[Rfam]
RNA: U2 spliceosomal RNA
Organism: Etheostoma spectabile
RNA sequence: AUAAAUUCUUUUCAAAAGAAAAAAAUCUGUUCUUAUCAGUUUAAUAUCUGAUAUGUCCUCUAUCAGGGGACAACAUAUUAAAUGGAUUUUUAGCAAUGGGAGUUGAAAAAGGGGCUUGCUCCAUUCACUCCACGCAUCGACCGGUAUUGCAGCGUCGCUGGGAACGGUGCACCCAUC
Number, nucleotide and partner (000 for none) at each position: 001a000002u000003a000004a000005a000006u000007u019008c018009u017010u000011u000012u000013c000014a000015a000016a000017a009018g008019a007020a000021a000022a000023a000024a000025a000026u000027c000028u000029g000030u000031u000032c000033u000034u053035a052036u051037c050038a049039g048040u000041u000042u000043a000044a000045u000046a000047u000048c039049u038050g037051a036052u035053a034054u000055g071056u070057c069058c068059u067060c066061u065062a000063u000064c000065a061066g060067g059068g058069g057070a056071c055072a000073a000074c000075a000076u000077a000078u000079u000080a000081a000082a000083u000084g000085g000086a000087u000088u000089u000090u000091u000092a000093g000094c000095a000096a000097u000098g000099g131100g130101a129102g128103u127104u000105g125106a124107a000108a000109a000110a000111g122112g121113g120114g119115c000116u000117u000118g000119c114120u113121c112122c111123a000124u106125u105126c000127a103128c102129u101130c100131c099132a000133c000134g170135c169136a168137u167138c166139g165140a000141c161142c160143g159144g158145u157146a000147u000148u000149g000150c000151a000152g000153c000154g000155u000156c000157g145158c144159u143160g142161g141162g000163a000164a000165c139166g138167g137168u136169g135170c134171a000172c000173c000174c000175a000176u000177c000